[Rfam]
RNA: DUF3085 RNA
Organism: Thauera sp. 27
RNA sequence: CGGUAGCUGGCUCCACCGGGCUCAACAGAGCCGAAUCCAGCCUUGCGAGUCCGUCCAGGACUUACAAAACACAUAGGG
Numbered sequence: 001c002g003g004u005a006g007c008u009g010g011c012u013c014c015a016c017c018g019g020g021c022u023c024a025a026c027a028g029a030g031c032c033g034a035a036u037c038c039a040g041c042c043u044u045g046c047g048a049g050u051c052c053g054u055c056c057a058g059g060a061c062u063u064a065c066a067a068a069a070c071a072c073a074u075a076g077g078g
Stems, first nucleotide, its partner, number of pairs: 001018004006041005019032004049061004